[Rfam]
RNA sequence: GACGGGCCGCCUCGCAUCGCGGCGCGGUGAACCGGGUCAGGUCGGGAACGAAGCAGCCACAGCCGUUUACCGUGAGUGCCGGGGGAACGGCUCGUCACC
Numbered sequence: 001g002a003c004g005g006g007c008c009g010c011c012u013c014g015c016a017u018c019g020c021g022g023c024g025c026g027g028u029g030a031a032c033c034g035g036g037u038c039a040g041g042u043c044g045g046g047a048a049c050g051a052a053g054c055a056g057c058c059a060c061a062g063c064c065g066u067u068u069a070c071c072g073u074g075a076g077u078g079c080c081g082g083g084g085g086a087a088c089g090g091c092u093c094g095u096c097a098c099c
Stems, first nucleotide, its partner, number of pairs: 004093005010084005015076001017075006024066005035058003042051003

This 99-nucleotide RNA sequence from Thiomonas bhubaneswarensis belongs to the Rfam family "Bacterial small signal recognition particle RNA". A search with the family's covariance model found it, with a score of 69 bits. It is annotated as a non-coding RNA gene. From the family's description: The signal recognition particle (SRP) is a universally conserved ribonucleoprotein involved in the co-translational targeting of proteins to membranes. Rfam links the family to the GO terms signal recognition particle, plasma membrane targeting and SRP-dependent cotranslational protein targeting to membrane, signal sequence recognition.